Shown here is a 69-nucleotide RNA from Acanthosepion pharaonis, a member of the family "mir-2 microRNA precursor family". The family's consensus secondary structure was predicted with PFOLD. Rfam links the family to the GO terms RISC complex and miRNA-mediated post-transcriptional gene silencing.

RNA sequence: CCUUUCAUCAAAGUGGCUGUCAUACGCUCUUGAUCUUAUUCGUAUCACAGCCUGCUUUGAUGAGAGGAA
Numbered sequence: 001c002c003u004u005u006c007a008u009c010a011a012a013g014u015g016g017c018u019g020u021c022a023u024a025c026g027c028u029c030u031u032g033a034u035c036u037u038a039u040u041c042g043u044a045u046c047a048c049a050g051c052c053u054g055c056u057u058u059g060a061u062g063a064g065a066g067g068a069a
Stems, first nucleotide, its partner, number of pairs: 005063009015052006022045001026043002